[Rfam]
RNA: L17 ribosomal protein downstream element
Organism: Fructilactobacillus florum
RNA sequence: AAAGCGUUAUGAUGAUGGAAUUCCAAGUCUAGCUUGAAUGUGGAUUUUUUUCCAUGCGC
Numbered sequence: 001a002a003a004g005c006g007u008u009a010u011g012a013u014g015a016u017g018g019a020a021u022u023c024c025a026a027g028u029c030u031a032g033c034u035u036g037a038a039u040g041u042g043g044a045u046u047u048u049u050u051u052c053c054a055u056g057c058g059c
Stems, first nucleotide, its partner, number of pairs: 002035004011029003017024002036059001039056006